[Rfam]
Description: A member of the RNA family "mir-448 microRNA precursor family" from Equus caballus, 108 nucleotides long. Its family is annotated with RISC complex, negative regulation of cell differentiation and miRNA-mediated post-transcriptional gene silencing in the Gene Ontology. On this family, see Linsen et al., BMC Genomics 2010: "Small RNA expression and strain specificity in the rat". It is one of the family's seed sequences. The family's consensus secondary structure was predicted with RNAalifold.
RNA sequence: GCGGGGAGGUUGAACAUCCUGCAUAGUGCUGCCAGGAAAUCCCCAUUUUAUACUAAGAGGGGGCUGGCUGGUUGCAUAUGUAGGAUGUCCCAUCUCCCCGCCCGCUUC
Numbered sequence: 001g002c003g004g005g006g007a008g009g010u011u012g013a014a015c016a017u018c019c020u021g022c023a024u025a026g027u028g029c030u031g032c033c034a035g036g037a038a039a040u041c042c043c044c045a046u047u048u049u050a051u052a053c054u055a056a057g058a059g060g061g062g063g064c065u066g067g068c069u070g071g072u073u074g075c076a077u078a079u080g081u082a083g084g085a086u087g088u089c090c091c092a093u094c095u096c097c098c099c100g101c102c103c104g105c106u107u108c
Stems, first nucleotide, its partner, number of pairs: 004098007012090001014088012027076003031072005040062004046057003